[Rfam]
RNA sequence: UAAUUUUAAGGGCAAACUUGCCGAAAGACAAGGACGUAAAGCCAAGGGUCUAAGAUGUGAAUGCAUUAUGAUAGCCUGGCUGCCGUU
Numbered sequence: 001u002a003a004u005u006u007u008a009a010g011g012g013c014a015a016a017c018u019u020g021c022c023g024a025a026a027g028a029c030a031a032g033g034a035c036g037u038a039a040a041g042c043c044a045a046g047g048g049u050c051u052a053a054g055a056u057g058u059g060a061a062u063g064c065a066u067u068a069u070g071a072u073a074g075c076c077u078g079g080c081u082g083c084c085g086u087u
Base pairs, nucleotide, nucleotide: 012037013036017032018031019030020029022027040081041080042079043078045077046076047075048072049071050070055066056065057064058063
RNA: c-di-GMP-I riboswitch aptamer